Rfam assigns this 80-nucleotide RNA to the family "mir-1791 microRNA precursor family". Rfam's curators put it in the seed alignment.
RNA sequence: UGCACCAUGUUGGGCUGCAUCAGUCAUGCCAUGUUAUGAAACCUAACGCGAUGUGACUGAUGCAGCUUGACAUGAAGUGU
Numbered sequence: 001u002g003c004a005c006c007a008u009g010u011u012g013g014g015c016u017g018c019a020u021c022a023g024u025c026a027u028g029c030c031a032u033g034u035u036a037u038g039a040a041a042c043c044u045a046a047c048g049c050g051a052u053g054u055g056a057c058u059g060a061u062g063c064a065g066c067u068u069g070a071c072a073u074g075a076a077g078u079g080u
Base pairs, nucleotide, nucleotide: 002080003079004078005077006074007073008072009071010070011069012068013067014066015065016064017063018062019061020060021059022058023057024056025055026054027053028052030050032048033047034046035045036044